[Rfam]
RNA: mir-393 microRNA precursor family
RNA sequence: GAAGGAUGAAUUCAAAGGGAUAGCAUGAUCCAAAAUUAACCAAUAAUUUUGUUGGUAUUUCUUUUGCCAAUAACCAAGAAAAUAAUCGGGAAAAUUCACCUUAAUUAGGAUCAAUGCGAUCCCUUUGGAUCCUUCCUC
Numbered sequence: 001g002a003a004g005g006a007u008g009a010a011u012u013c014a015a016a017g018g019g020a021u022a023g024c025a026u027g028a029u030c031c032a033a034a035a036u037u038a039a040c041c042a043a044u045a046a047u048u049u050u051g052u053u054g055g056u057a058u059u060u061c062u063u064u065u066g067c068c069a070a071u072a073a074c075c076a077a078g079a080a081a082a083u084a085a086u087c088g089g090g091a092a093a094a095u096u097c098a099c100c101u102u103a104a105u106u107a108g109g110a111u112c113a114a115u116g117c118g119a120u121c122c123c124u125u126u127g128g129a130u131c132c133u134u135c136c137u138c
Stems, first nucleotide, its partner, number of pairs: 003137004008132001010130012023117003026113006035105005